Rfam assigns this 150-nucleotide RNA sequence from Dyella choica to the family "Group II catalytic intron D1-D4-7".
Pairs were carried over by alignment from the consensus structure.
Rfam describes the family as follows. Group II introns are found in rRNA, tRNA and mRNA of organelles in fungi, plants and protists, and also in mRNA in bacteria.
Gene Ontology term of the family: Group II intron splicing.
Lineage of the source: Bacteria > Pseudomonadota > Lysobacterales > Rhodanobacteraceae > Dyella.
The literature on the family includes a 2001 paper in Trends Genet by Bonen and Vogel, "The ins and outs of group II introns".

RNA sequence: CCCGGCGUUCCGUCGCCGGUAGCCUACCGGAGCAUGUGCGUUUGGCAACGGAAGGGUGUGAAACUGCCCGGAUGAAGAUUGCCCGCCUUCGGACAGGGGCUAUCCCGCGAGGGAUUGCCCUCUUCUGCUAGCGUCGACGCGAAUGGGGUC
Numbered sequence: 001c002c003c004g005g006c007g008u009u010c011c012g013u014c015g016c017c018g019g020u021a022g023c024c025u026a027c028c029g030g031a032g033c034a035u036g037u038g039c040g041u042u043u044g045g046c047a048a049c050g051g052a053a054g055g056g057u058g059u060g061a062a063a064c065u066g067c068c069c070g071g072a073u074g075a076a077g078a079u080u081g082c083c084c085g086c087c088u089u090c091g092g093a094c095a096g097g098g099g100c101u102a103u104c105c106c107g108c109g110a111g112g113g114a115u116u117g118c119c120c121u122c123u124u125c126u127g128c129u130a131g132c133g134u135c136g137a138c139g140c141g142a143a144u145g146g147g148g149u150c
Base pairs, nucleotide, nucleotide: 002019003018004017005016006015007014029068030067032065033060034059035058036057037056039054041052042051043050044049080095081094083092084091085090096120097119098118105112106111124143126141127140128139